[Rfam]
RNA sequence: UGCCUUCAGUUCUACCCAUUCAUCUUGGUUACUAAUGAAUGUGGUGUCGAAAAGGCAUAAAGUAAGUUUCCCCUUGCAGCUUCUUCCUAAUCUAGGAGUUAUUCCUACUGGAUUUGCUGUGUGGGGGACAUUA
Dot-bracket structure: .(((((...(..(((((((((((...........))))))).))))..)..)))))..............((((.(((((........((((..((........))...)).)).)))))..)))).......
Overview
Small nucleolar RNA SNORA13: a 133-nucleotide RNA sequence from Anolis carolinensis. The family's consensus secondary structure was predicted with CMfinder. Lineage of the source: Eukaryota > Sarcopterygii > Dipnotetrapodomorpha > Unidentata > Anolis. Rfam describes the family as follows. ACA13 is a member of the H/ACA class of snoRNA that guide the sites of modification of uridines to pseudouridines.